Annotation
A member of the RNA family "RNA Staph. aureus E (RoxS)" from Bacillus sp. SG-1, 109 nucleotides long. It was shown to be regulated by the presence of nitric oxide (NO). In Bacillus subtilis it controls expression of genes with functions related to oxidative stress and oxidation-reduction reactions and it was renamed RoxS (for related to oxidative stress). The base pairs follow the family's consensus structure, which is taken from published work. Rfam links the family to the GO term regulation of translational initiation. The organism belongs to Bacillus, within Bacteria. The sequence is in the family's curated seed alignment. On this family, see Geissmann et al., Nucleic Acids Res 2009: "A search for small noncoding RNAs in Staphylococcus aureus reveals a conserved sequence motif for regulation".
[Rfam]
RNA sequence: AAGAAGUUGAUCACAACAAACAUAUACCCCUUUGUUUGACCGUGAAAAAUUUCUCCCAUCCCCUUUGUUUGUAUAAGAAAACCCGUUGUCUUCGGACAACGGGUUUUCU
Numbered sequence: 001a002a003g004a005a006g007u008u009g010a011u012c013a014c015a016a017c018a019a020a021c022a023u024a025u026a027c028c029c030c031u032u033u034g035u036u037u038g039a040c041c042g043u044g045a046a047a048a049a050u051u052u053c054u055c056c057c058a059u060c061c062c063c064u065u066u067g068u069u070u071g072u073a074u075a076a077g078a079a080a081a082c083c084c085g086u087u088g089u090c091u092u093c094g095g096a097c098a099a100c101g102g103g104u105u106u107u108c109u
Stems, first nucleotide, its partner, number of pairs: 003053006011045004017038006069075001079106011